[Rfam]
RNA: Singlet oxygen resistance RNA X
RNA sequence: GAACCUCAUGGAAGCGGCAAUGACUAGCUCUUGUCACUUUCAUACCUCCCUGUUGGACUUGGCCGAGCGUUAGCUCGGCCCUUUUU
Dot-bracket structure: .......(((((((......................))))))).................((((((((....))))))))......